[Rfam]
RNA: Streptomyces RNA 3920
Organism: Streptomyces sp. NRRL S-1521
RNA sequence: GAUAGGUCUCUGUCGCUACCGUGAUUGGACACUGACACACAGUCAACUAGCCUUGUCGACGCGGUUCUUCGCGCGGGGAACGCGAGGAAUCAGAGCGGUCCGAGCCACGAGGGGGGAGGCUCGGACCGUUCGAU
Numbered sequence: 001g002a003u004a005g006g007u008c009u010c011u012g013u014c015g016c017u018a019c020c021g022u023g024a025u026u027g028g029a030c031a032c033u034g035a036c037a038c039a040c041a042g043u044c045a046a047c048u049a050g051c052c053u054u055g056u057c058g059a060c061g062c063g064g065u066u067c068u069u070c071g072c073g074c075g076g077g078g079a080a081c082g083c084g085a086g087g088a089a090u091c092a093g094a095g096c097g098g099u100c101c102g103a104g105c106c107a108c109g110a111g112g113g114g115g116g117a118g119g120c121u122c123g124g125a126c127c128g129u130u131c132g133a134u
Stems, first nucleotide, its partner, number of pairs: 001014005015051004021032003033045004060073005077091001094130013108115001